[Rfam]
RNA sequence: GCCUCCAUGGCGCAAUUGGCUAGCGCGUUCGGCUGUUAUUAACUGUCAAUAAGCAGAGCAACCGGAAGGAUGCUGGUUCGAUCCCAGCUGGGGGCG
Numbered sequence: 001g002c003c004u005c006c007a008u009g010g011c012g013c014a015a016u017u018g019g020c021u022a023g024c025g026c027g028u029u030c031g032g033c034u035g036u037u038a039u040u041a042a043c044u045g046u047c048a049a050u051a052a053g054c055a056g057a058g059c060a061a062c063c064g065g066a067a068g069g070a071u072g073c074u075g076g077u078u079c080g081a082u083c084c085c086a087g088c089u090g091g092g093g094g095c096g
Stems, first nucleotide, its partner, number of pairs: 001095007010026004028066005072088005

tRNA: a 96-nucleotide RNA sequence from Elaphomyces granulatus.
It is annotated as a transfer RNA.
The family's consensus secondary structure is taken from published work.
Rfam links the family to the GO term triplet codon-amino acid adaptor activity.